RNA sequence: UGAGGAUUGUUUAUGAGAGUAUUAUAAGUCACUACAUUUGGUAAGCAAAGUGUUGUUUCUCAAACGAAGUGACUUAUGAUAAUCUCAUGAAUGGAUUUUGCA
Numbered sequence: 001u002g003a004g005g006a007u008u009g010u011u012u013a014u015g016a017g018a019g020u021a022u023u024a025u026a027a028g029u030c031a032c033u034a035c036a037u038u039u040g041g042u043a044a045g046c047a048a049a050g051u052g053u054u055g056u057u058u059c060u061c062a063a064a065c066g067a068a069g070u071g072a073c074u075u076a077u078g079a080u081a082a083u084c085u086c087a088u089g090a091a092u093g094g095a096u097u098u099u100g101c102a
Stems, first nucleotide, its partner, number of pairs: 003099006010091009020081014035066001037064005043058006

MIR400 microRNA precursor family: a 102-nucleotide RNA sequence from Arabidopsis thaliana.
The sequence is in the family's curated seed alignment.
The organism belongs to Arabidopsis, within Eukaryota.